The family of this 60-nucleotide sequence is "GP20-b RNA".

RNA sequence: AGCUGGCUACAGGCGUACGAGUGUAGAUAGGCGCUGGGAGCGACACCCGUAAAAAGCGUA
Numbered sequence: 001a002g003c004u005g006g007c008u009a010c011a012g013g014c015g016u017a018c019g020a021g022u023g024u025a026g027a028u029a030g031g032c033g034c035u036g037g038g039a040g041c042g043a044c045a046c047c048c049g050u051a052a053a054a055a056g057c058g059u060a
Base pairs, nucleotide, nucleotide: 002014003013004012007026008025009024010023011022035049036048037047038046